[Rfam]
RNA sequence: GUUGGUUACGGGGACAUUUAUCCCAAGACAUUACUGGGUAAAAUUGUAGGGGGUCUAUGUUGCAUUGCUGGAGUGUUAGUCAUAGCAUUGCCUAUACCAAUCAUAGUAAAUAAU
Numbered sequence: 001g002u003u004g005g006u007u008a009c010g011g012g013g014a015c016a017u018u019u020a021u022c023c024c025a026a027g028a029c030a031u032u033a034c035u036g037g038g039u040a041a042a043a044u045u046g047u048a049g050g051g052g053g054u055c056u057a058u059g060u061u062g063c064a065u066u067g068c069u070g071g072a073g074u075g076u077u078a079g080u081c082a083u084a085g086c087a088u089u090g091c092c093u094a095u096a097c098c099a100a101u102c103a104u105a106g107u108a109a110a111u112a113a114u
Base pairs, nucleotide, nucleotide: 001114002113004111007108008107009106011104013102014101019096020095021094037077038076039075040074049063051061
Rfam assigns this 114-nucleotide RNA from Leptobrachium leishanense to the family "Potassium channel RNA editing signal".
It scores 83 bits against the family's covariance model.
This family represents a group of sequences related to the human potassium channel Kv1.1 hairpin element which directs the efficient modification of an adenosine to inosine by an adenosine deaminase acting on RNA (ADAR).
It is annotated as a cis-regulatory element.
Pairs were carried over by alignment from the consensus structure, which is taken from published work.